[Rfam]
RNA sequence: GGCUGCAAGUUUGAGGCCAUAGCAAAAGCGUUCGUGGUGCAGCCCUGUCAUUCCAAUGAAUCAGCAAAUUCUGCU
Numbered sequence: 001g002g003c004u005g006c007a008a009g010u011u012u013g014a015g016g017c018c019a020u021a022g023c024a025a026a027a028g029c030g031u032u033c034g035u036g037g038u039g040c041a042g043c044c045c046u047g048u049c050a051u052u053c054c055a056a057u058g059a060a061u062c063a064g065c066a067a068a069u070u071c072u073g074c075u
Stems, first nucleotide, its partner, number of pairs: 013045001015044003021075004026070002028040003049064001050061004